[Rfam]
RNA: Lysine riboswitch aptamer
Organism: Acholeplasma oculi
RNA sequence: AAUAUAAAUAGAGGUGCGAUUUUUGAAGAUUAGAGUGGGGAGCCGGUAGGCAAUGAACCACUUGAAAGGCAUAAGUCGCCGAAUAAAUAAUUAAGACAUUAAUUAUUUAUGGGGUUAUUGAGAAUACCAAUAACACUCCUACGAGAGUAGAGGAGCUAUUAUAAUC
Numbered sequence: 001a002a003u004a005u006a007a008a009u010a011g012a013g014g015u016g017c018g019a020u021u022u023u024u025g026a027a028g029a030u031u032a033g034a035g036u037g038g039g040g041a042g043c044c045g046g047u048a049g050g051c052a053a054u055g056a057a058c059c060a061c062u063u064g065a066a067a068g069g070c071a072u073a074a075g076u077c078g079c080c081g082a083a084u085a086a087a088u089a090a091u092u093a094a095g096a097c098a099u100u101a102a103u104u105a106u107u108u109a110u111g112g113g114g115u116u117a118u119u120g121a122g123a124a125u126a127c128c129a130a131u132a133a134c135a136c137u138c139c140u141a142c143g144a145g146a147g148u149a150g151a152g153g154a155g156c157u158a159u160u161a162u163a164a165u166c
Stems, first nucleotide, its partner, number of pairs: 007160005016079007024071001033063006083110012111137002114134007139150004